[Rfam]
RNA sequence: GCCUCAGGACGACCUGAGACGGCAUCGCUAAUCGCGGGACGACCCGC
Numbered sequence: 001g002c003c004u005c006a007g008g009a010c011g012a013c014c015u016g017a018g019a020c021g022g023c024a025u026c027g028c029u030a031a032u033c034g035c036g037g038g039a040c041g042a043c044c045c046g047c
Stems, first nucleotide, its partner, number of pairs: 001020001003018006034047005